[Rfam]
RNA sequence: GUCGUCGCCGCCUCGGAUUCGCUUGGUGCAGGUCGGGAACGGCUCGAUUUCUCGCUCUCCCCCCUCGAUCCCCACAGCGAGCCGGAUCCCGCCUUGCACCAACUGAAUCGGAGCCGGAUUGCGA
Numbered sequence: 001g002u003c004g005u006c007g008c009c010g011c012c013u014c015g016g017a018u019u020c021g022c023u024u025g026g027u028g029c030a031g032g033u034c035g036g037g038a039a040c041g042g043c044u045c046g047a048u049u050u051c052u053c054g055c056u057c058u059c060c061c062c063c064c065u066c067g068a069u070c071c072c073c074a075c076a077g078c079g080a081g082c083c084g085g086a087u088c089c090c091g092c093c094u095u096g097c098a099c100c101a102a103c104u105g106a107a108u109c110g111g112a113g114c115c116g117g118a119u120u121g122c123g124a
Stems, first nucleotide, its partner, number of pairs: 013112002017108004023102010034091005040085001

The family of this 124-nucleotide RNA sequence from Ananas comosus is "MIR168 microRNA precursor family". A reference for the family is Reinhart et al. (2002), "MicroRNAs in plants", Genes Dev.